Background: S15-Flavobacteria ribosomal protein leader: a 67-nucleotide RNA sequence. A reference for the family is Eckert and Weinberg (2020), "Discovery of 20 novel ribosomal leader candidates in bacteria and archaea", BMC Microbiol.
RNA sequence: UAUCUUUGCCGCUUGAUUACCAAAAUGGUAUUCAGUACAUAAAAAUCAUUUUAAUAAUAUUGGCAUG
Numbered sequence: 001u002a003u004c005u006u007u008g009c010c011g012c013u014u015g016a017u018u019a020c021c022a023a024a025a026u027g028g029u030a031u032u033c034a035g036u037a038c039a040u041a042a043a044a045a046u047c048a049u050u051u052u053a054a055u056a057a058u059a060u061u062g063g064c065a066u067g
Stems, first nucleotide, its partner, number of pairs: 014034003018030004